[Rfam]
The record is a 517-nucleotide part of an RNA from Chrysodeixis includens, which matches "Archaeal large subunit ribosomal RNA" in Rfam.
RNA sequence: GGUAGUAGCAAAUACUCCGGCGAGGCCCUGGAGGACUGACGUGGAGAAGGGUUUCGCGCAAACAGUGGUUGGCCGCGAGUCAGUCGAUCCUAAGCUCUAAGAGAAAUCUGAUGUCGAUGCGGCGUGUUUAGAUAGCGCCGGACGAAAGUCACGGCGCGUGACAAAUAACGCCCUUCGAGCGAAAGGGAAUCCGGUUCCUAUUCCGGAACCCGGCAGCGGAACCGUUUCGACAAGCGUUCUCUCGCUUCGGCGAGUGUUCGACGGGGCAACCCAAAGUGGCCUGAAGACGCCGCCGAGAGGUCUGGGAAGAGAUUUCUUUUCUGCCUGAGCGCUCGAGUACCGCGGAAUCCUAUAGCAGGGAGAUGCGGUUCGGAGCGCGAAGAGCACCGCACGUGUAGUGGUGUCCGGAUCCUCUCUGCGGACCUUGAAAAUUCAGGUGAGGGAUGUACGUGGAGGUGUCGCGCCGGUUCGUACCCAUAUCCGCAGCAGGUCUCCAAGGUGAAGAGCCUCUAGUCGA
Numbered sequence: 001g002g003u004a005g006u007a008g009c010a011a012a013u014a015c016u017c018c019g020g021c022g023a024g025g026c027c028c029u030g031g032a033g034g035a036c037u038g039a040c041g042u043g044g045a046g047a048a049g050g051g052u053u054u055c056g057c058g059c060a061a062a063c064a065g066u067g068g069u070u071g072g073c074c075g076c077g078a079g080u081c082a083g084u085c086g087a088u089c090c091u092a093a094g095c096u097c098u099a100a101g102a103g104a105a106a107u108c109u110g111a112u113g114u115c116g117a118u119g120c121g122g123c124g125u126g127u128u129u130a131g132a133u134a135g136c137g138c139c140g141g142a143c144g145a146a147a148g149u150c151a152c153g154g155c156g157c158g159u160g161a162c163a164a165a166u167a168a169c170g171c172c173c174u175u176c177g178a179g180c181g182a183a184a185g186g187g188a189a190u191c192c193g194g195u196u197c198c199u200a201u202u203c204c205g206g207a208a209c210c211c212g213g214c215a216g217c218g219g220a221a222c223c224g225u226u227u228c229g230a231c232a233a234g235c236g237u238u239c240u241c242u243c244g245c246u247u248c249g250g251c252g253a254g255u256g257u258u259c260g261a262c263g264g265g266g267c268a269a270c271c272c273a274a275a276g277u278g279g280c281c282u283g284a285a286g287a288c289g290c291c292g293c294c295g296a297g298a299g300g301u302c303u304g305g306g307a308a309g310a311g312a313u314u315u316c317u318u319u320u321c322u323g324c325c326u327g328a329g330c331g332c333u334c335g336a337g338u339a340c341c342g343c344g345g346a347a348u349c350c351u352a353u354a355g356c357a358g359g360g361a362g363a364u365g366c367g368g369u370u371c372g373g374a375g376c377g378c379g380a381a382g383a384g385c386a387c388c389g390c391a392c393g394u395g396u397a398g399u400g401g402u403g404u405c406c407g408g409a410u411c412c413u414c415u416c417u418g419c420g421g422a423c424c425u426u427g428a429a430a431a432u433u434c435a436g437g438u439g440a441g442g443g444a445u446g447u448a449c450g451u452g453g454a455g456g457u458g459u460c461g462c463g464c465c466g467g468u469u470c471g472u473a474c475c476c477a478u479a480u481c482c483g484c485a486g487c488a489g490g491u492c493u494c495c496a497a498g499g500u501g502a503a504g505a506g507c508c509u510c511u512a513g514u515c516g517a
Stems, first nucleotide, its partner, number of pairs: 015033006034515004043495004049475002054078005063071002085471003089186002094180004099175003191244001193242002247467006254460001329378004339369006349359003390398001481490002497509003